[Rfam]
RNA sequence: CAACCAUCCAAUUCACUUCGGAUCGUCCGGCACGUACCUGCCGGUGAAUGAGGAGCAA
Numbered sequence: 001c002a003a004c005c006a007u008c009c010a011a012u013u014c015a016c017u018u019c020g021g022a023u024c025g026u027c028c029g030g031c032a033c034g035u036a037c038c039u040g041c042c043g044g045u046g047a048a049u050g051a052g053g054a055g056c057a058a
Base pairs, nucleotide, nucleotide: 009050010049012048013047014046015045027044028043029042030041031040032039